[Rfam]
This 33-nucleotide RNA belongs to the Rfam family "DUF805b RNA".
Its Rfam clan is "DUF805 clan".
The base pairs follow the family's consensus structure, which is taken from published work.
RNA sequence: AGAAGGGAAGCCGAAAACUUUAUAGAGUAGGCA
Numbered sequence: 001a002g003a004a005g006g007g008a009a010g011c012c013g014a015a016a017a018c019u020u021u022a023u024a025g026a027g028u029a030g031g032c033a
Stems, first nucleotide, its partner, number of pairs: 002021004010032003

Rfam classes the family as a cis-regulatory element.